[Rfam]
RNA sequence: AUAGUGUUUGGGAAUGAUGUGCUCCCAUGUAUGUUAUAUACAAAACCGCAAUAAAUUUGCUGAUGACGUCUAACCCUUU
Numbered sequence: 001a002u003a004g005u006g007u008u009u010g011g012g013a014a015u016g017a018u019g020u021g022c023u024c025c026c027a028u029g030u031a032u033g034u035u036a037u038a039u040a041c042a043a044a045a046c047c048g049c050a051a052u053a054a055a056u057u058u059g060c061u062g063a064u065g066a067c068g069u070c071u072a073a074c075c076c077u078u079u
Stems, first nucleotide, its partner, number of pairs: 010026004016070005048060004

Notes: Rfam assigns this 79-nucleotide RNA sequence from Acholeplasma hippikon to the family "Fluoride riboswitch aptamer (crcB RNA motif)". The family's consensus secondary structure is taken from published work. The organism belongs to Acholeplasma, within Bacteria.